[Rfam]
RNA sequence: UUUACCAAGCCAGGUUUAGAAUUCCUACGCUUUACCGUUUAUUUGAACUGGCAAAGCGUUUGGAUUCUGAAUCUGGAGAGGU
Numbered sequence: 001u002u003u004a005c006c007a008a009g010c011c012a013g014g015u016u017u018a019g020a021a022u023u024c025c026u027a028c029g030c031u032u033u034a035c036c037g038u039u040u041a042u043u044u045g046a047a048c049u050g051g052c053a054a055a056g057c058g059u060u061u062g063g064a065u066u067c068u069g070a071a072u073c074u075g076g077a078g079a080g081g082u
Stems, first nucleotide, its partner, number of pairs: 010076011022064003027059007035051002
A member of the RNA family "mir-927 microRNA precursor family" from Ceutorhynchus assimilis, 82 nucleotides long. Rfam links the family to the GO terms RISC complex and miRNA-mediated post-transcriptional gene silencing. A search with the family's covariance model found it, with a score of 72 bits. The literature on the family includes a 2010 paper in Nat Genet by Berezikov et al., "Evolutionary flux of canonical microRNAs and mirtrons in Drosophila". Taxonomically the source falls in Ceutorhynchus (Eukaryota, Panarthropoda, Mandibulata, Hexapoda). Pairs were carried over by alignment from the consensus structure, which was predicted with RNAalifold.